[Rfam]
RNA sequence: GAAGAAGAGAAGGAGAAGGAGGAGGAAGAGAAGAAGGAGAAGGUCCCUUCUCCUCCUCCUCCUCCUUCUCCUUCUUCUUGA
Number, nucleotide and partner (000 for none) at each position: 001g000002a000003a000004g077005a076006a075007g074008a073009g072010a000011a000012g071013g070014a000015g068016a000017a066018g065019g064020a063021g062022g061023a060024g059025g058026a057027a000028g055029a000030g000031a000032a000033g000034a000035a000036g053037g052038a051039g050040a049041a048042g047043g000044u000045c000046c000047c042048u041049u040050c039051u038052c037053c036054u000055c028056c000057u026058c025059c024060u023061c022062c021063u020064c019065c018066u017067u000068c015069u000070c013071c012072u009073u008074c007075u006076u005077c004078u000079u000080g000081a000
Source information: mir-877 microRNA precursor family: an 81-nucleotide sequence from Hordeum vulgare. Gene Ontology terms of the family: RISC complex and miRNA-mediated post-transcriptional gene silencing. The base pairs follow the family's consensus structure, which was predicted with RNAalifold. The family has 8 seed sequences and 186 matches in Rfam 15.1. For this family Rfam cites "Many novel mammalian microRNA candidates identified by extensive cloning and RAKE analysis" (Berezikov et al., Genome Res, 2006).